[Rfam]
RNA sequence: AGAUUCCAGUGUAACUGGCGACAAGUGUGGAUUAAACCACGAUGGAGCACUGGAAAUAUCGGCCGGUCGCCUGGGCAAAAGAG
Numbered sequence: 001a002g003a004u005u006c007c008a009g010u011g012u013a014a015c016u017g018g019c020g021a022c023a024a025g026u027g028u029g030g031a032u033u034a035a036a037c038c039a040c041g042a043u044g045g046a047g048c049a050c051u052g053g054a055a056a057u058a059u060c061g062g063c064c065g066g067u068c069g070c071c072u073g074g075g076c077a078a079a080a081g082a083g
Stems, first nucleotide, its partner, number of pairs: 004055009015044001017071005027040004062076003
Notes
Shown here is an 83-nucleotide RNA sequence from Paenibacillus sp. J45TS6, a member of the family "ZMP/ZTP riboswitch aptamer (pfl RNA motif)". It scores 61 bits against the family's covariance model.